This 85-nucleotide RNA sequence from Sodalis ligni belongs to the Rfam family "Group II catalytic intron D1-D4-1". Rfam 15.1 lists 2,508 matches to the family in 1,144 species. It scores 68 bits against the family's covariance model. From the family's description: Group II introns are found in rRNA, tRNA and mRNA of organelles in fungi, plants and protists, and also in mRNA in bacteria.
[Rfam]
RNA sequence: UACCGCGCGCCGAGAGGCGACGGGAUGAACGUGCAGAAGUCAGCCGAGGCCGUAGUAGCGAUGCAAAACCGGCAUCGCGAAGGGC
Number, nucleotide and partner (000 for none) at each position: 001u027002a026003c000004c023005g000006c000007g000008c019009g018010c017011c016012g000013a000014g000015a000016g011017g010018c009019g008020a000021c000022g000023g004024g000025a000026u002027g001028a000029a000030c000031g000032u000033g000034c000035a000036g000037a000038a000039g000040u047041c046042a000043g000044c000045c000046g041047a040048g000049g085050c084051c083052g000053u000054a000055g000056u000057a000058g078059c077060g076061a075062u074063g073064c000065a000066a000067a000068a000069c000070c000071g000072g000073c063074a062075u061076c060077g059078c058079g000080a000081a000082g000083g051084g050085c049